sucA-II RNA: a 214-nucleotide sequence from Pseudomonas graminis.
RNA sequence: CUGCGGCGCAGGCUUCAACCGGCGCCGUAGUUUUAACCUGAGCAGUUGUCGUAUGGCUUCAGCUCUUAUUUUGAAGAAAUGAAACCAGCAGGGGCAUCCGGGCUGGUACCCGGACUAUCUGCGUGAUUCCUAGUGACUUGAAGUCGCUGCACAUGGACUUUUCAAGUUUGCGCUGGCAUCGACGCCGAUGGUGUCCCCUAAUCGAGGGUGACCA
Numbered sequence: 001c002u003g004c005g006g007c008g009c010a011g012g013c014u015u016c017a018a019c020c021g022g023c024g025c026c027g028u029a030g031u032u033u034u035a036a037c038c039u040g041a042g043c044a045g046u047u048g049u050c051g052u053a054u055g056g057c058u059u060c061a062g063c064u065c066u067u068a069u070u071u072u073g074a075a076g077a078a079a080u081g082a083a084a085c086c087a088g089c090a091g092g093g094g095c096a097u098c099c100g101g102g103c104u105g106g107u108a109c110c111c112g113g114a115c116u117a118u119c120u121g122c123g124u125g126a127u128u129c130c131u132a133g134u135g136a137c138u139u140g141a142a143g144u145c146g147c148u149g150c151a152c153a154u155g156g157a158c159u160u161u162u163c164a165a166g167u168u169u170g171c172g173c174u175g176g177c178a179u180c181g182a183c184g185c186c187g188a189u190g191g192u193g194u195c196c197c198c199u200a201a202u203c204g205a206g207g208g209u210g211a212c213c214a
Stems, first nucleotide, its partner, number of pairs: 001030009011020002040065004045060001048057003090199005095193002097114006115191005121185003125180002128176002133171004137166005142159004
Background
The match comes from Rfam's covariance-model search (170 bits). The organism belongs to Pseudomonas, within Bacteria. Pairs were carried over by alignment from the consensus structure, which is taken from published work.